Shown here is a 124-nucleotide sequence from a Parvibaculaceae bacterium, a member of the family "Guanidine-I riboswitch aptamer". Rfam describes the family as follows. This family represents a conserved RNA structure found upstream of the ykkC and yxkD genes in Bacillus subtilis and related genes in other bacteria. The function of this family is unclear although it has been suggested that it may function to switch on efflux pumps and detoxification systems in response to harmful environmental molecules. Rfam links the family to the GO term regulation of gene expression. The literature on the family includes a 2004 paper in Proc Natl Acad Sci U S A by Barrick et al., "New RNA motifs suggest an expanded scope for riboswitches in bacterial genetic control". Pairs were carried over by alignment from the consensus structure.
[Rfam]
RNA sequence: AGCAUUAGCAGCUAGGGUUCCGGCUGGUGUCCGAUUUAUCGGAUCAUCUGGUGACUGGUCCGAGAGCUGCGGCUCUGUCGGUUUACAGCGGCAGAGUACACGGCGGGAUAAAAGCCCGGGAGGU
Number, nucleotide and partner (000 for none) at each position: 001a000002g000003c000004a000005u000006u000007a000008g070009c069010a068011g067012c066013u000014a000015g061016g060017g000018u000019u000020c058021c057022g055023g052024c051025u050026g049027g048028u000029g000030u000031c000032c000033g000034a000035u000036u000037u000038a000039u000040c000041g000042g000043a000044u000045c000046a000047u000048c027049u026050g025051g024052u023053g000054a000055c022056u000057g021058g020059u000060c016061c015062g000063a000064g000065a000066g012067c011068u010069g009070c008071g000072g097073c096074u095075c094076u093077g092078u091079c090080g000081g000082u000083u000084u000085a000086c000087a000088g000089c000090g079091g078092c077093a076094g075095a074096g073097u072098a000099c119100a000101c122102g000103g000104c000105g117106g116107g115108a000109u000110a000111a000112a000113a000114g000115c107116c106117c105118g000119g099120g000121a000122g101123g000124u000